Rfam assigns this 164-nucleotide sequence from Faecalibacterium sp. An121 to the family "M-box riboswitch aptamer (ykoK leader)". Rfam links the family to the GO terms regulation of gene expression and response to magnesium ion. Pairs were carried over by alignment from the consensus structure. The source organism's lineage runs through Bacteria, Bacillati, Clostridia, Eubacteriales and Faecalibacterium. Rfam describes the family as follows. M-box riboswitch, also know as ykoK leader is described as a metaloregulatory RNA that sense divalent metals and function as a genetic control element of genes related to divalent metal transport in bacteria. It was first reported upstream of the B.subtilis ykoK gene and genes with related functions in other bacteria.
RNA sequence: AAUGUGGUUUGAUAGGUAAGGCUCUUACAGGGAUAUGGGCUGCUGCCGCAAAAUGGUGGAGACACCAUGCGCAGGUCUGAACAGGAUGCGUCGAUGACAAGGCGUAUCAUAAUGCAGCUACACCGCCCUGCAAAGCUAAAGCUCAGGCGAACACAGGUCGAUUU
Numbered sequence: 001a002a003u004g005u006g007g008u009u010u011g012a013u014a015g016g017u018a019a020g021g022c023u024c025u026u027a028c029a030g031g032g033a034u035a036u037g038g039g040c041u042g043c044u045g046c047c048g049c050a051a052a053a054u055g056g057u058g059g060a061g062a063c064a065c066c067a068u069g070c071g072c073a074g075g076u077c078u079g080a081a082c083a084g085g086a087u088g089c090g091u092c093g094a095u096g097a098c099a100a101g102g103c104g105u106a107u108c109a110u111a112a113u114g115c116a117g118c119u120a121c122a123c124c125g126c127c128c129u130g131c132a133a134a135g136c137u138a139a140a141g142c143u144c145a146g147g148c149g150a151a152c153a154c155a156g157g158u159c160g161a162u163u164u
Stems, first nucleotide, its partner, number of pairs: 005160006011148001013100001015143003020137003025133002028130005039118005045077001046075002048072002055066004085108003090103003